[Rfam]
RNA sequence: GGCCUCCUGGUGCUGACCGAGGCUAUGUUCACCUGUCAUGUAUAUAAAAAGAGGAGGAAAAAAUAAUCCAGUCCCAUAUAUACCUCAGCCUAGGCUCUGUGCACGGUCUGUAGUAUGAAUGGGGAGACUAUA
Dot-bracket structure: ..((((((...........(....(((......)))....)..........))))))..............((((((........(((.((..((.....))..)).)))........))))))........
RNA: Small nucleolar RNA SNORA51
Organism: Castor canadensis